About this RNA
The family of this 110-nucleotide RNA sequence from Carya illinoinensis is "Small nucleolar RNA Z152/R70/R12/". The match comes from Rfam's covariance-model search (64 bits). It is annotated as a C/D-box small nucleolar RNA. The family has 9 seed sequences and 604 matches in Rfam 15.1.
RNA sequence: UGUGUAUCCUAUGAUGAGAUUACCCACUGGAUGUGUUUUGGGCAGAGGAUGAGAUUGAUUUUUCACCAUGAGCCCAUUUUAUUAAACAACUUCUCCUUCCACUGAUCACA
Numbered sequence: 001u002g003u004g005u006a007u008c009c010u011a012u013g014a015u016g017a018g019a020u021u022a023c024c025c026a027c028u029g030g031a032u033g034u035g036u037u038u039u040g041g042g043c044a045g046a047g048g049a050u051g052a053g054a055u056u057g058a059u060u061u062u063u064c065a066c067c068a069u070g071a072g073c074c075c076a077u078u079u080u081a082u083u084a085a086a087c088a089a090c091u092u093c094u095c096c097u098u099c100c101a102c103u104g105a106u107c108a109c110a
Stems, first nucleotide, its partner, number of pairs: 001110004